[Rfam]
RNA sequence: GUAAUCAGCUGGGGGAGCUUGGUUUAUCCAGGCUGAGAGGGCAACAAAUAGGUUGUCGACCCCUUAUUUACCUGAUCUGGAUAAUUCCAGCGGAGGGAAAGCGCGCGUAAGUCCAA
Dot-bracket structure: .......(((((((..(((((.......)))))......(((((........)))))..)))).......(((...((((......))))...)))...)))..............